[Rfam]
RNA sequence: GGCCCAGCUUUUGCUUAGCUAAUCACACAGGUAGCCAACGGCGGUUGCCCCACCUACGACAAAGACGUCGC
Numbered sequence: 001g002g003c004c005c006a007g008c009u010u011u012u013g014c015u016u017a018g019c020u021a022a023u024c025a026c027a028c029a030g031g032u033a034g035c036c037a038a039c040g041g042c043g044g045u046u047g048c049c050c051c052a053c054c055u056a057c058g059a060c061a062a063a064g065a066c067g068u069c070g071c
Stems, first nucleotide, its partner, number of pairs: 030049007
Dot-bracket structure: .............................(((((((......)))))))......................

narK RNA: a 71-nucleotide RNA from Pseudomonas sp. CFII64. The family's RNA type in Rfam is cis-regulatory element. Rfam's curators put it in the seed alignment. Lineage of the source: Bacteria > Pseudomonadati > Gammaproteobacteria > Pseudomonadales > Pseudomonas. Pairs were carried over by alignment from the consensus structure, which is taken from published work.